[Rfam]
RNA: c-di-GMP-I riboswitch aptamer
Organism: Paramaledivibacter caminithermalis
RNA sequence: UUUGGAAAAAGGCAAACCUAUAGAAAUAUAGGGACGCAAAGCCACAGGUCUAAGGAAGUGAUGCUUCUAUGACGGCUGGGCUGCCCGG
Numbered sequence: 001u002u003u004g005g006a007a008a009a010a011g012g013c014a015a016a017c018c019u020a021u022a023g024a025a026a027u028a029u030a031g032g033g034a035c036g037c038a039a040a041g042c043c044a045c046a047g048g049u050c051u052a053a054g055g056a057a058g059u060g061a062u063g064c065u066u067c068u069a070u071g072a073c074g075g076c077u078g079g080g081c082u083g084c085c086c087g088g
Base pairs, nucleotide, nucleotide: 012037013036017032018031019030020029021028022027040082041081042080043079045078046077047076048073049072050071055067056066057065058064